Annotation:
Shown here is a 201-nucleotide RNA from Chara braunii, a member of the family "U2 spliceosomal RNA". Its Rfam clan is "U2 clan".
[Rfam]
RNA sequence: UUCGCUUUCUCGGUCCUUUUGGCUAAGAUCAAGUGUAGUACCUGUUCUGAUCAGUUUAAUAUCUGAUCUGUGGUCCAUCGGGCCACAUGAUAUUAAAUUAAUUUUUCAGGGCUACGGAGGGGUCAUGCGGGUAGGCUUGCCUACUCGACCCUUCCAGCCUUGCCUUCGUCUUGCACUGCAGCGAAGCAUGGCGCAGCCCAA
Number, nucleotide and partner (000 for none) at each position: 001u000002u000003c000004g000005c000006u000007u000008u028009c027010u026011c000012g024013g023014u000015c022016c021017u000018u000019u000020u000021g016022g015023c013024u012025a000026a010027g009028a008029u000030c000031a000032a000033g000034u000035g000036u000037a000038g000039u000040a000041c000042c000043u000044g000045u000046u000047c000048u000049g068050a067051u066052c065053a064054g063055u000056u000057u000058a000059a000060u000061a000062u000063c054064u053065g052066a051067u050068c049069u000070g086071u085072g084073g083074u082075c081076c080077a000078u000079c000080g076081g075082g074083c073084c072085a071086c070087a000088u000089g000090a000091u000092a000093u000094u000095a000096a000097a000098u000099u000100a000101a000102u000103u000104u000105u000106u000107c000108a000109g000110g000111g000112c000113u000114a000115c000116g000117g154118a153119g152120g151121g150122g149123u148124c147125a000126u000127g000128c000129g000130g000131g000132u143133a142134g141135g140136c000137u000138u000139g000140c135141c134142u133143a132144c000145u000146c000147g124148a123149c122150c121151c120152u119153u118154c117155c000156a000157g194158c193159c000160u191161u190162g189163c000164c186165u185166u184167c183168g182169u181170c000171u000172u000173g000174c000175a000176c000177u000178g000179c000180a000181g169182c168183g167184a166185a165186g164187c000188a000189u162190g161191g160192c000193g158194c157195a000196g000197c000198c000199c000200a000201a000
The source organism's lineage runs through Eukaryota, Viridiplantae, Streptophyta, Charales and Chara.
The family's consensus secondary structure is taken from published work.
A search with the family's covariance model found it, with a score of 143 bits.
The family's RNA type in Rfam is spliceosomal small nuclear RNA.